[Rfam]
RNA sequence: AUCGUUCAUCUCAUUUAAGGCAGUGGGACGGAAGUAAGUAAAACACUGAAGGAACGCGUG
Number, nucleotide and partner (000 for none) at each position: 001a000002u000003c056004g055005u054006u053007c052008a000009u028010c027011u026012c025013a024014u023015u022016u000017a000018a000019g000020g000021c000022a015023g014024u013025g012026g011027g010028a009029c000030g000031g057032a000033a000034g000035u000036a000037a047038g046039u045040a000041a000042a000043a000044c000045a039046c038047u037048g000049a000050a000051g000052g007053a006054a005055c004056g003057c031058g000059u000060g000
Glutamine riboswitch aptamer (glnA leader): a 60-nucleotide RNA sequence. The sequence is in the family's curated seed alignment.